Rfam assigns this 68-nucleotide sequence from Halomonas sp. BC04 to the family "int-alpA RNA".
NCBI's taxonomy places the organism under Bacteria, Pseudomonadati, Pseudomonadota, Gammaproteobacteria, Halomonas.
The match comes from Rfam's covariance-model search (37 bits).
The family has 167 seed sequences and 577 matches in Rfam 15.1.
About the family: Acidobacteria (1 example), Planctomycetes (1 example), Proteobacteria.
The family's RNA type in Rfam is small RNA.
RNA sequence: GGCUGGCCUAGGGUAGCUCCCGAACGUGCGAGUACUCCACCGCACUGGCCAGCCUCUUCAACUGGAGA
Numbered sequence: 001g002g003c004u005g006g007c008c009u010a011g012g013g014u015a016g017c018u019c020c021c022g023a024a025c026g027u028g029c030g031a032g033u034a035c036u037c038c039a040c041c042g043c044a045c046u047g048g049c050c051a052g053c054c055u056c057u058u059c060a061a062c063u064g065g066a067g068a
Base pairs, nucleotide, nucleotide: 001054002053003052004051005050006049007048008047011021012020013019027044028043029042030041035067036066037065038064039063
Dot-bracket structure: ((((((((..(((.....))).....((((....[[[[[.))))..))))))))........]]]]].